[Rfam]
RNA: Small nucleolar RNA R16
RNA sequence: GAAGGCAAAUGAUGCUACACAAAAAUCUUAUACUACACACUGAAUAUAUUCGUGUAGAAAACUAAUCUCAAUAAUUUUCUGAUGCUUCA
Dot-bracket structure: ..(((((...........................................................................)))))..